[Rfam]
RNA: Vertebrate telomerase RNA
Organism: Dermophis mexicanus
RNA sequence: UCUCUCCGGAGAGGGGCGGUUUCUCUGUCUUCUAACCCUAAUGCGGUGCUUCGGCAGAAGCUCUCCACUGCGUACGCUCACUGUUUUUCUAGCUAACUUUCAGUGAGCAGGGAGAGCGAAGUCCAGUUUCACGACAACGGAGAAAAAAUGUUAGCUGGGGAACGUCCCUUUCCCGAGAGCCCGCGCCGUCCUUUUUCUUCCUCGGGCCCGUUGGCAUAGCCCCUGGCCUCCUCGCUCUAUAGGCCGCGGUCAGCUCGGGCCCCAGCUCCGGCAGGGGUUCCACUGCUGCCGCGAAGAGUUCGCCUCUGUCAGCCUUGAGGUGGCCGGGAUAGAAUAGGCGGGCUCGCGGCAGCGCGCGGGAAAGAGCAAAUGGUGAACUGGGUGCCUGUUGGGGUCGCGUCCCUGAAGAGUGGGAAGUGCGAUCUGUGUUCCUGUUCAGACACAC
Numbered sequence: 001u002c003u004c005u006c007c008g009g010a011g012a013g014g015g016g017c018g019g020u021u022u023c024u025c026u027g028u029c030u031u032c033u034a035a036c037c038c039u040a041a042u043g044c045g046g047u048g049c050u051u052c053g054g055c056a057g058a059a060g061c062u063c064u065c066c067a068c069u070g071c072g073u074a075c076g077c078u079c080a081c082u083g084u085u086u087u088u089c090u091a092g093c094u095a096a097c098u099u100u101c102a103g104u105g106a107g108c109a110g111g112g113a114g115a116g117c118g119a120a121g122u123c124c125a126g127u128u129u130c131a132c133g134a135c136a137a138c139g140g141a142g143a144a145a146a147a148a149u150g151u152u153a154g155c156u157g158g159g160g161a162a163c164g165u166c167c168c169u170u171u172c173c174c175g176a177g178a179g180c181c182c183g184c185g186c187c188g189u190c191c192u193u194u195u196u197c198u199u200c201c202u203c204g205g206g207c208c209c210g211u212u213g214g215c216a217u218a219g220c221c222c223c224u225g226g227c228c229u230c231c232u233c234g235c236u237c238u239a240u241a242g243g244c245c246g247c248g249g250u251c252a253g254c255u256c257g258g259g260c261c262c263c264a265g266c267u268c269c270g271g272c273a274g275g276g277g278u279u280c281c282a283c284u285g286c287u288g289c290c291g292c293g294a295a296g297a298g299u300u301c302g303c304c305u306c307u308g309u310c311a312g313c314c315u316u317g318a319g320g321u322g323g324c325c326g327g328g329a330u331a332g333a334a335u336a337g338g339c340g341g342g343c344u345c346g347c348g349g350c351a352g353c354g355c356g357c358g359g360g361a362a363a364g365a366g367c368a369a370a371u372g373g374u375g376a377a378c379u380g381g382g383u384g385c386c387u388g389u390u391g392g393g394g395u396c397g398c399g400u401c402c403c404u405g406a407a408g409a410g411u412g413g414g415a416a417g418u419g420c421g422a423u424c425u426g427u428g429u430u431c432c433u434g435u436u437c438a439g440a441c442a443c444a445c
Stems, first nucleotide, its partner, number of pairs: 004177003008171003013168006020161004060117005076108008092155006098148003180360007205344008222328007230320005245293005251288004257281003295307004375437004380432001381430005395422005400415004